A member of the RNA family "Selenocysteine transfer RNA" from Slackia isoflavoniconvertens, 94 nucleotides long. Taxonomically the source falls in Slackia (Bacteria, Coriobacteriia, Eggerthellales, Eggerthellaceae).
RNA sequence: GGAGAUGAAUAGGUUCCUGGUGGACCUCGCGGCCUUCAAAGCCGUUGCGGGGCGCGCAGAACGUCUCGGGUGUGUUCGAUUCACACGCAUCUCC
Dot-bracket structure: (((((((....((.(((....))).)).(((((.......)))))..(((((...........)))))..((((.......))))..)))))))